A member of the RNA family "Small nucleolar RNA SNORD35" from Microtus ochrogaster, 89 nucleotides long. About the family: U35 is a C/D box snoRNA located in intron 6 of ribosomal protein L13A and intron 3 of ribosomal protein S11 in humans and at homologous positions in mouse and chicken ribosomal protein genes. U35 guides the methylation of 2'-O-ribose sites in 28S rRNA. The family is grouped with related families in Rfam's "SNORD35 clan".
RNA sequence: GGCAUAUGAUGGCUAUUUUCUCACGAUGGUCUGCGGAUGCCGCUGACGGGCAGUGCCGAUAAUGCCAUGGGCUCAACUGAUGCCAGGAG
Numbered sequence: 001g002g003c004a005u006a007u008g009a010u011g012g013c014u015a016u017u018u019u020c021u022c023a024c025g026a027u028g029g030u031c032u033g034c035g036g037a038u039g040c041c042g043c044u045g046a047c048g049g050g051c052a053g054u055g056c057c058g059a060u061a062a063u064g065c066c067a068u069g070g071g072c073u074c075a076a077c078u079g080a081u082g083c084c085a086g087g088a089g
Stems, first nucleotide, its partner, number of pairs: 001084004
It is annotated as a C/D-box small nucleolar RNA. Its family is annotated with nucleolus and RNA processing in the Gene Ontology. Taxonomically the source falls in Microtus (Eukaryota, Teleostomi, Dipnotetrapodomorpha, Amniota). For this family Rfam cites "Intron-encoded, antisense small nucleolar RNAs: the characterization of nine novel species points to their direct role as guides for the 2'-O-ribose methylation of rRNAs" (Nicoloso et al., J Mol Biol, 1996).